[Rfam]
RNA sequence: UCCGUGCAUCAAGAGUGGGUCAUCUCGACCCACGCCAACCUGCCCAGCCCGGGCAAGGUGGCGGUCCCAGCGGGACGAUGCGGCCGAGACGGCAACGAACCGGGUCUCU
Number, nucleotide and partner (000 for none) at each position: 001u000002c000003c000004g000005u000006g081007c080008a079009u078010c077011a000012a000013g000014a000015g033016u032017g031018g030019g029020u028021c000022a000023u000024c000025u000026c000027g000028a020029c019030c018031c017032a016033c015034g062035c061036c060037a000038a000039c058040c057041u056042g054043c053044c052045c000046a105047g000048c103049c102050c000051g000052g044053g043054c042055a000056a041057g040058g039059u000060g036061g035062c034063g000064g000065u000066c000067c000068c000069a000070g000071c000072g000073g000074g000075a000076c000077g010078a009079u008080g007081c006082g000083g093084c092085c091086g090087a000088g000089a000090c086091g085092g084093c083094a000095a000096c000097g000098a000099a000100c000101c000102g049103g048104g000105u046106c000107u000108c000109u000
A member of the RNA family "SAM-I/IV (S-adenosyl methionine) riboswitch aptamer" from Sphingomonas parva, 109 nucleotides long. The base pairs follow the family's consensus structure, which is taken from published work. The match comes from Rfam's covariance-model search (59 bits).